[Rfam]
RNA sequence: UUGUGUGUGGGGAGAAAAUUACAGAAGCCUCUGAGGUCGAAACAAGGAAAGACUUCGAUGUGCUUCUGUGU
Dot-bracket structure: ..............(....(((((..((...(((.(((............))).)))....))..))))))

A member of the RNA family "Cyano-1 RNA" from Gloeothece verrucosa, 71 nucleotides long. The family's consensus secondary structure is taken from published work.